RNA sequence: AUUUUCAAAUCUGAGCAAGCUGCACAUUAUUUCUUACUAUGCAGCCCGGUCACGAUUGUGACAGCAGAGUAUACCUAUCCUAGGGUACAUCUGUGAGACAGUA
Numbered sequence: 001a002u003u004u005u006c007a008a009a010u011c012u013g014a015g016c017a018a019g020c021u022g023c024a025c026a027u028u029a030u031u032u033c034u035u036a037c038u039a040u041g042c043a044g045c046c047c048g049g050u051c052a053c054g055a056u057u058g059u060g061a062c063a064g065c066a067g068a069g070u071a072u073a074c075c076u077a078u079c080c081u082a083g084g085g086u087a088c089a090u091c092u093g094u095g096a097g098a099c100a101g102u103a
Stems, first nucleotide, its partner, number of pairs: 011101003016097001019045006026038001049062005064094005
Dot-bracket structure: ..........(((..(..((((((.(...........).))))))...(((((....))))).(((((.....................)))))..).)))..

NiCo (Nickel/Cobalt) riboswitch aptamer: a 103-nucleotide RNA sequence from Amphibacillus xylanus. The match comes from Rfam's covariance-model search (42 bits). For this family Rfam cites "Bacterial riboswitches cooperatively bind Ni(2+) or Co(2+) ions and control expression of heavy metal transporters" (Furukawa et al., Mol Cell, 2015). Gene Ontology terms of the family: metal ion homeostasis and cobalt ion binding.